A member of the RNA family "mir-9242 microRNA precursor family" from Myotis lucifugus, 64 nucleotides long. The organism belongs to Myotis, within Eukaryota.

RNA sequence: GGCCUCUCUCUGCGGGGCGAUCGAUUGCAGAGCCCUGCAAUCGAUCACCCCACAGAGGGAGGCC
Numbered sequence: 001g002g003c004c005u006c007u008c009u010c011u012g013c014g015g016g017g018c019g020a021u022c023g024a025u026u027g028c029a030g031a032g033c034c035c036u037g038c039a040a041u042c043g044a045u046c047a048c049c050c051c052a053c054a055g056a057g058g059g060a061g062g063c064c
Base pairs, nucleotide, nucleotide: 001064002063003062004061005060006059007058008057009056010055011054012053014051015050016049017048019046020045021044022043023042024041025040026039027038028037029036030035
It scores 69 bits against the family's covariance model.